[Rfam]
RNA sequence: UGGCUGGUAUCCUAAAAGGGAACUAGACAAAUUUAAUAUAAAUAAUAAAAAUUCGACUGGUAUCUCAGAAGAACCAGAACGGAGG
Numbered sequence: 001u002g003g004c005u006g007g008u009a010u011c012c013u014a015a016a017a018g019g020g021a022a023c024u025a026g027a028c029a030a031a032u033u034u035a036a037u038a039u040a041a042a043u044a045a046u047a048a049a050a051a052u053u054c055g056a057c058u059g060g061u062a063u064c065u066c067a068g069a070a071g072a073a074c075c076a077g078a079a080c081g082g083a084g085g
Stems, first nucleotide, its partner, number of pairs: 001030001003028001004026005010021002054081002057077005063072003
RNA: pan motif
Organism: Garciella nitratireducens